Rfam assigns this 123-nucleotide RNA sequence from Sinorhizobium medicae to the family "Alphaproteobacterial ar14". Smr14C2 was renamed NfeR1 (Nodule Formation Efficiency RNA) highly expressed in salt stress and during the symbiotic interaction on legume roots. For this family Rfam cites "A survey of sRNA families in alpha-proteobacteria" (del Val et al., RNA Biol, 2012). The pairing is the family consensus, mapped onto this sequence.

RNA sequence: AUCGAUCGGGCAGCGCACUCCUCCUCCCAGCGCACCCGAUACGGAUUGGCAGCACUCCUCCUCCCAGUUGCCAAUCAGAACAAGCGACGCCUGCUGGACCUCCUCCCCCAGCGGGCGUUGUUU
Dot-bracket structure: ......((((..((((.............)))).)))).....((((((((((.............))))))))))..........(((((((((((..........))))))))))).....